[Rfam]
RNA: Bacteroidales small SRP
Organism: Alistipes shahii
Nucleotides: 105
Base pairs, nucleotide, nucleotide: 008103009102010101011100012099013098014097015096017092018091019090020089021088022086023085024083025082
Number, partner (000 for none) and nucleotide at each position: 001000u002000g003000u004000g005000c006000c007000c008103g009102g010101g011100u012099g013098a014097g015096u016000c017092u018091u019090a020089c021088a022086c023085g024083a025082c026000c027000a028000g029000c030000u031000c032000c033000u034000a035000c036000a037000g038000a039000a040000u041000c042000c043000c044000c045000c046000a047000g048000g049000c050000g051000a052000g053000g054000a055000a056000u057000c058000g059000a060000g061000c062000a063000a064000g065000g066000g067000u068000a069000u070000g071000u072000g073000g074000u075000c076000g077000u078000a079000g080000c081000g082025g083024u084000g085023c086022g087000a088021u089020g090019u091018a092017a093000g094000u095000a096015g097014c098013u099012c100011a101010c102009c103008c104000u105000u